[Rfam]
RNA sequence: CUCGCAUCGAGAGCGGCGGAGGGAACUGGCCCCGAGAAACCGCGGCAACCGGCGCAGAGCGGAGACGCUCGCGCAAGGUGCCAAGUCCAGCAGGACGCAGAGGUCUGUUGAGCGUCCUGGAAGAUGUGGA
Numbered sequence: 001c002u003c004g005c006a007u008c009g010a011g012a013g014c015g016g017c018g019g020a021g022g023g024a025a026c027u028g029g030c031c032c033c034g035a036g037a038a039a040c041c042g043c044g045g046c047a048a049c050c051g052g053c054g055c056a057g058a059g060c061g062g063a064g065a066c067g068c069u070c071g072c073g074c075a076a077g078g079u080g081c082c083a084a085g086u087c088c089a090g091c092a093g094g095a096c097g098c099a100g101a102g103g104u105c106u107g108u109u110g111a112g113c114g115u116c117c118u119g120g121a122a123g124a125u126g127u128g129g130a
Base pairs, nucleotide, nucleotide: 002129003128004127005126006125007124008123013043014042015041016040021032022031023030026090027089028088029087044082045081046080047079049078050077052074053073054072055071086122091119092118093117094116095115096114097113098112